The family of this 183-nucleotide sequence is "malK-I RNA". Pairs were carried over by alignment from the consensus structure, which is taken from published work. Rfam classes the family as a cis-regulatory element.
[Rfam]
Nucleotides: 183
Stems, first nucleotide, its partner, number of pairs: 007041003011037003015033004064078004068171001070169005079103008088095002106133002109129005136163008146155003
Number, partner (000 for none) and nucleotide at each position: 001000u002000c003000c004000g005000g006000u007041g008040g009039a010000a011037u012036g013035g014000u015033a016032c017031u018030a019000c020000u021000c022000c023000a024000c025000a026000a027000a028000a029000a030018u031017a032016g033015u034000u035013c036012c037011a038000a039009u040008u041007c042000c043000g044000c045000u046000a047000a048000a049000a050000u051000a052000a053000a054000g055000g056000a057000g058000g059000a060000a061000c062000c063000c064078c065077c066076g067075u068171c069000a070169g071168a072167c073166u074165c075067a076066c077065g078064g079103u080102g081101c082100g083099g084098c085097a086096g087000u088095g089094u090000g091000g092000a093000g094089a095088c096086c097085u098084g099083u100082c101081g102080u103079a104000a105000u106133g107132c108000a109129u110128c111127u112126g113125c114000u115000g116000u117000u118000u119000u120000a121000c122000c123000c124000g125113g126112c127111a128110g129109a130000u131000c132107g133106c134000g135000a136163g137162g138161g139160c140159a141158u142157a143156c144000a145000u146155u147154g148153a149000g150000a151000a152000u153148u154147c155146a156143g157142u158141a159140u160139g161138u162137c163136c164000g165074g166073a167072g168071u169070c170000a171068g172000a173000a174000a175000a176000c177000a178000a179000u180000g181000g182000c183000a